The record is a 102-nucleotide RNA from Halalkalibacter okhensis, which matches "Purine riboswitch aptamer" in Rfam. The source organism's lineage runs through Bacteria, Bacillati, Bacillota, Bacillaceae and Halalkalibacter. Its Rfam clan is "Purine riboswitches". Riboswitches are metabolite binding domains within certain messenger RNAs that serve as precision sensors for their corresponding targets.
[Rfam]
RNA sequence: AUUGUAUAUGGUUAUUCUUUUCGUAUAAUUGCAGGGAUAUGGCCUGCUAGUCUCUACCAAGCUUCCGUAAAGAGCUUGACUACGAAAAAUCAAUCUACCCCU
Numbered sequence: 001a002u003u004g005u006a007u008a009u010g011g012u013u014a015u016u017c018u019u020u021u022c023g024u025a026u027a028a029u030u031g032c033a034g035g036g037a038u039a040u041g042g043c044c045u046g047c048u049a050g051u052c053u054c055u056a057c058c059a060a061g062c063u064u065c066c067g068u069a070a071a072g073a074g075c076u077u078g079a080c081u082a083c084g085a086a087a088a089a090u091c092a093a094u095c096u097a098c099c100c101c102u
Base pairs, nucleotide, nucleotide: 018088019087020086021085022084023083024082025081029049031047032046033045034044035043058078059077060076061075062074063073064072
The base pairs follow the family's consensus structure, which is taken from published work.